[Rfam]
RNA sequence: ACCCUCUGGUUCCCUUUCCUGUCAGAUCUUGGUGGUUGUAAAAGGAGGAAAAGUAAUACUGAAGCUGGCCAUAUGGUGUUCUAGUCUGUUAUCUAACACACCGGCUUGUUUCAAACAGAG
Numbered sequence: 001a002c003c004c005u006c007u008g009g010u011u012c013c014c015u016u017u018c019c020u021g022u023c024a025g026a027u028c029u030u031g032g033u034g035g036u037u038g039u040a041a042a043a044g045g046a047g048g049a050a051a052a053g054u055a056a057u058a059c060u061g062a063a064g065c066u067g068g069c070c071a072u073a074u075g076g077u078g079u080u081c082u083a084g085u086c087u088g089u090u091a092u093c094u095a096a097c098a099c100a101c102c103g104g105c106u107u108g109u110u111u112c113a114a115a116c117a118g119a120g
Stems, first nucleotide, its partner, number of pairs: 003048005019035005065108001067106004080098001082096001